[Rfam]
RNA sequence: CUGCAAAUAUUGUUGCUGUCCUGAUAGUUCAAUGGUCAGGCUAGUCACUUGCUAUAUUAAAACUCUGCAAUGUGUCCCCAGGACUUGGUUAUUUCUCUAAUUUUUGUGUUUUUAAUGGCUAGUGACAUGU
Numbered sequence: 001c002u003g004c005a006a007a008u009a010u011u012g013u014u015g016c017u018g019u020c021c022u023g024a025u026a027g028u029u030c031a032a033u034g035g036u037c038a039g040g041c042u043a044g045u046c047a048c049u050u051g052c053u054a055u056a057u058u059a060a061a062a063c064u065c066u067g068c069a070a071u072g073u074g075u076c077c078c079c080a081g082g083a084c085u086u087g088g089u090u091a092u093u094u095c096u097c098u099a100a101u102u103u104u105u106g107u108g109u110u111u112u113u114a115a116u117g118g119c120u121a122g123u124g125a126c127a128u129g130u
Stems, first nucleotide, its partner, number of pairs: 003052003016039003020035002062123003067119002079106005085100004